Notes:
This 164-nucleotide sequence from Streptomyces pilosus belongs to the Rfam family "c-di-AMP riboswitch aptamer (ydaO/yuaA leader)". The pairing is the family consensus, mapped onto this sequence. This family represents a conserved RNA structure found upstream of the ydaO and yuaA genes in Bacillus subtilis and related genes in other bacteria.

[Rfam]
RNA sequence: AGCCCGCACACACUGACCCGUGUACGGCAGGAGCGGGGGACCCACAGGUACGACUGCCUGUUCCGGUCUCCGGAACGGCUUGGGGUUAAGCCGCGCGACAGCGCGGCCGGGCAUCUCCAGUCCGAACCCGACAGCUCACCUCGUAGGCGCCGGAGAGGAAAUUC
Numbered sequence: 001a002g003c004c005c006g007c008a009c010a011c012a013c014u015g016a017c018c019c020g021u022g023u024a025c026g027g028c029a030g031g032a033g034c035g036g037g038g039g040a041c042c043c044a045c046a047g048g049u050a051c052g053a054c055u056g057c058c059u060g061u062u063c064c065g066g067u068c069u070c071c072g073g074a075a076c077g078g079c080u081u082g083g084g085g086u087u088a089a090g091c092c093g094c095g096c097g098a099c100a101g102c103g104c105g106g107c108c109g110g111g112c113a114u115c116u117c118c119a120g121u122c123c124g125a126a127c128c129c130g131a132c133a134g135c136u137c138a139c140c141u142c143g144u145a146g147g148c149g150c151c152g153g154a155g156a157g158g159a160a161a162u163u164c
Stems, first nucleotide, its partner, number of pairs: 003031002033144006043082002083129003091106004109123004